The family of this 70-nucleotide sequence from Lottia gigantea is "Small nucleolar RNA SNORD2". Rfam 15.1 lists 1,116 matches to the family in 660 species. The organism belongs to Lottia, within Eukaryota. The family's RNA type in Rfam is C/D-box small nucleolar RNA. A reference for the family is Zhou et al. (2004), "Identification of a novel box C/D snoRNA from mouse nucleolar cDNA library", Gene. Rfam links the family to the GO terms RNA processing and nucleolus.

RNA sequence: UGGUGUAAUGAUGUUUUUCCAUCUUUCGGGGCAUAUCAUUUUUGAUGAUAAUAUAUUUUGCUGAACACCU
Numbered sequence: 001u002g003g004u005g006u007a008a009u010g011a012u013g014u015u016u017u018u019c020c021a022u023c024u025u026u027c028g029g030g031g032c033a034u035a036u037c038a039u040u041u042u043u044g045a046u047g048a049u050a051a052u053a054u055a056u057u058u059u060g061c062u063g064a065a066c067a068c069c070u
Base pairs, nucleotide, nucleotide: 002069003068004067005066006065